[Rfam]
RNA sequence: GUAUAUUAAUCCAUAUCAAUUCACAUGUGUUGAAGUGGAUUAGAGUAGAAAUUAGUUUAAGUUUCACACCAAUCCACUCCCACACAUGUAGAUUGAGGUGGAUACGUAU
Dot-bracket structure: ...(((..((((((.((((((.((((((((.(..(((((((.(.((...................)).).)))))))..).)))))))).)))))).))))))..))).
RNA: MIR5565 microRNA precursor family
Organism: Miscanthus lutarioriparius